[Rfam]
A member of the RNA family "mir-166 microRNA precursor family" from Sesamum indicum, 125 nucleotides long. About the family: This family represents the plant microRNA (miRNA) precursor mir-166. NCBI's taxonomy places the organism under Eukaryota, Spermatophyta, Magnoliopsida, Pentapetalae, Sesamum. Its family is annotated with RISC complex and miRNA-mediated post-transcriptional gene silencing in the Gene Ontology.
RNA sequence: GUUGAGGUGAAUGUAGGCUGGCUCGAGGCUGUUUGAGAGUUCCUAUAUUUCUGAUGAAUGAGAAUUAUAAGUGGGCUGGAACUCUCUCUCAGUAAUGCUUCGGACCAGGCUUCAUUCCCCUCAAA
Numbered sequence: 001g002u003u004g005a006g007g008u009g010a011a012u013g014u015a016g017g018c019u020g021g022c023u024c025g026a027g028g029c030u031g032u033u034u035g036a037g038a039g040u041u042c043c044u045a046u047a048u049u050u051c052u053g054a055u056g057a058a059u060g061a062g063a064a065u066u067a068u069a070a071g072u073g074g075g076c077u078g079g080a081a082c083u084c085u086c087u088c089u090c091a092g093u094a095a096u097g098c099u100u101c102g103g104a105c106c107a108g109g110c111u112u113c114a115u116u117c118c119c120c121u122c123a124a125a
Stems, first nucleotide, its partner, number of pairs: 002124006009117005016110001018108004024102006